RNA sequence: UAUCCUUAUAAAUCUAGCCUCUACUAGGCUUUGUCUGUGCAUUUGGAUUCAGACAUAGCCUAUGAGAGGUUAGGUGUACCAAGGAGA
Numbered sequence: 001u002a003u004c005c006u007u008a009u010a011a012a013u014c015u016a017g018c019c020u021c022u023a024c025u026a027g028g029c030u031u032u033g034u035c036u037g038u039g040c041a042u043u044u045g046g047a048u049u050c051a052g053a054c055a056u057a058g059c060c061u062a063u064g065a066g067a068g069g070u071u072a073g074g075u076g077u078a079c080c081a082a083g084g085a086g087a
Stems, first nucleotide, its partner, number of pairs: 012075009027060004032055004

A member of the RNA family "mir-282 microRNA precursor family" from Drosophila willistoni, 87 nucleotides long. The base pairs follow the family's consensus structure, which was predicted with RNAalifold. It is one of the family's seed sequences.